A member of the RNA family "Purine riboswitch aptamer" from Alteribacter lacisalsi, 102 nucleotides long.

[Rfam]
RNA sequence: GCCAAGACAAUACAUCAAGUUCGUAUAAUAACGGGAAUAAGGCCCGUGAGUCUCUACCAGGUUACCGUAAAUGACCUGACUACGAACGACCGGCUUCGCUCG
Number, nucleotide and partner (000 for none) at each position: 001g000002c000003c000004a000005a000006g000007a000008c000009a000010a000011u000012a000013c000014a000015u000016c000017a000018a000019g087020u086021u085022c084023g083024u082025a081026u000027a000028a000029u049030a000031a047032c046033g045034g044035g043036a000037a000038u000039a000040a000041g000042g000043c035044c034045c033046g032047u031048g000049a029050g000051u000052c000053u000054c000055u000056a000057c000058c078059a077060g076061g075062u074063u073064a072065c000066c000067g000068u000069a000070a000071a000072u064073g063074a062075c061076c060077u059078g058079a000080c000081u025082a024083c023084g022085a021086a020087c019088g000089a000090c000091c000092g000093g000094c000095u000096u000097c000098g000099c000100u000101c000102g000
The source organism's lineage runs through Bacteria, Bacillati, Bacilli, Bacillaceae and Alteribacter. The base pairs follow the family's consensus structure, which is taken from published work. The match comes from Rfam's covariance-model search (82 bits).